A member of the RNA family "Small nucleolar RNA SNORA32" from Otolemur garnettii, 125 nucleotides long. By type it is an H/ACA-box small nucleolar RNA. A search with the family's covariance model found it, with a score of 110 bits. About the family: ACA32 is a member of the H/ACA class of snoRNA that guide the sites of modification of uridines to pseudouridines.

RNA sequence: UGGUCAUUACCAAUGCUUUGAGAAUGCAGUUUCUCAAUUGCUGUGGACAUGACCACAAAACAAAAAUACUUCCACUAGGUUUUCUAUCUGCUACUUCGUUGACAUUCAGCUUACUGGGGACAUUU
Number, nucleotide and partner (000 for none) at each position: 001u000002g000003g053004u052005c051006a050007u049008u000009a000010c046011c045012a044013a000014u000015g000016c000017u000018u000019u000020g000021a000022g000023a000024a000025u000026g041027c040028a039029g038030u000031u000032u000033c000034u000035c000036a000037a000038u029039u028040g027041c026042u000043g000044u012045g011046g010047a000048c000049a007050u006051g005052a004053c003054c000055a000056c000057a000058a000059a000060a000061c000062a000063a000064a000065a000066a000067u000068a000069c000070u000071u118072c117073c116074a115075c000076u000077a000078g111079g110080u109081u108082u000083u000084c000085u000086a000087u000088c000089u104090g103091c000092u000093a000094c000095u000096u000097c000098g000099u000100u000101g000102a000103c090104a089105u000106u000107c000108a081109g080110c079111u078112u000113a000114c000115u074116g073117g072118g071119g000120a000121c000122a000123u000124u000125u000
Taxonomically the source falls in Otolemur (Eukaryota, Metazoa, Teleostomi, Euteleostomi).